[Rfam]
RNA sequence: ACACACUGACCCGUCCACGGCAGGAACGGGGGACCCACAGGCACGACCGCCUGUUCCGGUUCCCGGAACGGCUCGGGGUUAAGCCGCGCGACAGCGCGGCCGGGCAUCUCCAGCCCGCACCCGACAGCUCACCUCGUAGGCGCCGGAGAGGAAUU
Numbered sequence: 001a002c003a004c005a006c007u008g009a010c011c012c013g014u015c016c017a018c019g020g021c022a023g024g025a026a027c028g029g030g031g032g033a034c035c036c037a038c039a040g041g042c043a044c045g046a047c048c049g050c051c052u053g054u055u056c057c058g059g060u061u062c063c064c065g066g067a068a069c070g071g072c073u074c075g076g077g078g079u080u081a082a083g084c085c086g087c088g089c090g091a092c093a094g095c096g097c098g099g100c101c102g103g104g105c106a107u108c109u110c111c112a113g114c115c116c117g118c119a120c121c122c123g124a125c126a127g128c129u130c131a132c133c134u135c136g137u138a139g140g141c142g143c144c145g146g147a148g149a150g151g152a153a154u155u
Stems, first nucleotide, its partner, number of pairs: 004142001006140002014025003026137006036075001076122003084099004102116004
Rfam assigns this 155-nucleotide sequence from Streptomyces caelestis to the family "c-di-AMP riboswitch aptamer (ydaO/yuaA leader)". The base pairs follow the family's consensus structure. About the family: This family represents a conserved RNA structure found upstream of the ydaO and yuaA genes in Bacillus subtilis and related genes in other bacteria.